Rfam assigns this 66-nucleotide RNA from Pelagibacterales bacterium SAG-MED24 to the family "SAM-V (S-adenosyl methionine) riboswitch aptamer". Pairs were carried over by alignment from the consensus structure, which is taken from published work. NCBI's taxonomy places the organism under Bacteria, Pseudomonadati, Pseudomonadota, Alphaproteobacteria, Candidatus Pelagibacterales. Rfam 15.1 lists 23 matches to the family in 21 species. Its family is annotated with S-adenosylmethionine metabolic process and regulation of gene expression in the Gene Ontology.
RNA sequence: UUAUCGGUAGGUAUUUGAUCUAUAUUGUGCGCCUUACAUUAAGUAAAAGCACUAAAAAAGGAGUAA
Numbered sequence: 001u002u003a004u005c006g007g008u009a010g011g012u013a014u015u016u017g018a019u020c021u022a023u024a025u026u027g028u029g030c031g032c033c034u035u036a037c038a039u040u041a042a043g044u045a046a047a048a049g050c051a052c053u054a055a056a057a058a059a060g061g062a063g064u065a066a
Stems, first nucleotide, its partner, number of pairs: 009034004025055002027052004036044002